[Rfam]
Background:
Shown here is a 155-nucleotide sequence from Salvator merianae, a member of the family "U1 spliceosomal RNA". Rfam classes the family as a spliceosomal small nuclear RNA.
RNA sequence: ACAGUGGCAGGGGAGACACCUUGAUCAUGAAGGAGGUUUUCCCAGGGUGAGGCUCAGCCAUUUCAUUCCAUCUGUGCUGACUCCUGCGAUUUCCCCAAAAGGGGAAAACUCAACUGCUUAAUUUGUGGUAGUGGGGAACUGCAUGCACACUUAAA
Numbered sequence: 001a002c003a004g005u006g007g008c009a010g011g012g013g014a015g016a017c018a019c020c021u022u023g024a025u026c027a028u029g030a031a032g033g034a035g036g037u038u039u040u041c042c043c044a045g046g047g048u049g050a051g052g053c054u055c056a057g058c059c060a061u062u063u064c065a066u067u068c069c070a071u072c073u074g075u076g077c078u079g080a081c082u083c084c085u086g087c088g089a090u091u092u093c094c095c096c097a098a099a100a101g102g103g104g105a106a107a108a109c110u111c112a113a114c115u116g117c118u119u120a121a122u123u124u125g126u127g128g129u130a131g132u133g134g135g136g137a138a139c140u141g142c143a144u145g146c147a148c149a150c151u152u153a154a155a
Stems, first nucleotide, its partner, number of pairs: 007117004011043006018037005044085004049081001051078003055074003088111002090108001091106002094103002132154001134152003140147002